[Rfam]
RNA sequence: UCGUUAAGUGAUGGCAUCACAGACUGAGUAUCACAUCAUUACGCCUUGUCACAGACAUCUCAUUGUCAGGUCAUCACCUUUAUUGACGUGUCAAUGACAAGGUGUGAUGACGUGUCACUCUGUCUGCUACAUCAUCACUUAAUGAAA
Number, nucleotide and partner (000 for none) at each position: 001u145002c144003g143004u142005u141006a140007a139008g138009u137010g136011a135012u134013g133014g132015c000016a000017u129018c000019a000020c126021a125022g124023a123024c122025u000026g120027a119028g118029u117030a000031u000032c114033a113034c112035a000036u110037c109038a108039u107040u106041a105042c104043g103044c102045c101046u100047u000048g098049u097050c096051a095052c000053a000054g092055a091056c090057a089058u088059c000060u000061c000062a000063u000064u000065g000066u000067c000068a000069g000070g087071u086072c085073a084074u000075c000076a000077c000078c000079u000080u000081u000082a000083u000084u073085g072086a071087c070088g058089u057090g056091u055092c054093a000094a000095u051096g050097a049098c048099a000100a046101g045102g044103u043104g042105u041106g040107a039108u038109g037110a036111c000112g034113u033114g032115u000116c000117a029118c028119u027120c026121u000122g024123u023124c022125u021126g020127c000128u000129a017130c000131a000132u014133c013134a012135u011136c010137a009138c008139u007140u006141a005142a004143u003144g002145a001146a000147a000